[Rfam]
RNA sequence: AUUUGAAUUCAUAGUGGCAGUAUCGUAGCCAAUGAGGCUUACCCAAGGCGCGAUUAUUGCUGAUUGAAUUUGCAUUUGUAUUGCUUUUGCCUUAUGCUGAAAGUCUUGGUUUGCAACAAUGUUAAAAUAAUUAUUUUUAUCACAAUUUCAGGAUU
Numbered sequence: 001a002u003u004u005g006a007a008u009u010c011a012u013a014g015u016g017g018c019a020g021u022a023u024c025g026u027a028g029c030c031a032a033u034g035a036g037g038c039u040u041a042c043c044c045a046a047g048g049c050g051c052g053a054u055u056a057u058u059g060c061u062g063a064u065u066g067a068a069u070u071u072g073c074a075u076u077u078g079u080a081u082u083g084c085u086u087u088u089g090c091c092u093u094a095u096g097c098u099g100a101a102a103g104u105c106u107u108g109g110u111u112u113g114c115a116a117c118a119a120u121g122u123u124a125a126a127a128u129a130a131u132u133a134u135u136u137u138u139a140u141c142a143c144a145a146u147u148u149c150a151g152g153a154u155u
Stems, first nucleotide, its partner, number of pairs: 022054005028049003036044002080131003085126003089122002092119002144155004
RNA: U4 spliceosomal RNA